[Rfam]
RNA sequence: AUUUUCCCUCGUGACAUCUGAAAAACUAGGAGAUUGGUGUGCUGUCUAUGAGCUUCUACUCUUGAAAUUCUGACAGGUUUGAAGUUAAAUUGCAGCUCUACAAUU
Numbered sequence: 001a002u003u004u005u006c007c008c009u010c011g012u013g014a015c016a017u018c019u020g021a022a023a024a025a026c027u028a029g030g031a032g033a034u035u036g037g038u039g040u041g042c043u044g045u046c047u048a049u050g051a052g053c054u055u056c057u058a059c060u061c062u063u064g065a066a067a068u069u070c071u072g073a074c075a076g077g078u079u080u081g082a083a084g085u086u087a088a089a090u091u092g093c094a095g096c097u098c099u100a101c102a103a104u105u
Stems, first nucleotide, its partner, number of pairs: 039098001041096004051086006058078003
Dot-bracket structure: ......................................(.((((......((((((.(((...............)))..))))))......)))).).......

Source information:
A member of the RNA family "Small nucleolar RNA snoR97" from Phtheirospermum japonicum, 105 nucleotides long. The family has 7 seed sequences and 862 matches in Rfam 15.1. The match comes from Rfam's covariance-model search (46 bits). Its family is annotated with nucleolus and RNA processing in the Gene Ontology. A reference for the family is Marker et al. (2002), "Experimental RNomics: identification of 140 candidates for small non-messenger RNAs in the plant Arabidopsis thaliana", Curr Biol. Lineage of the source: Eukaryota > Tracheophyta > Gunneridae > Lamiales > Phtheirospermum.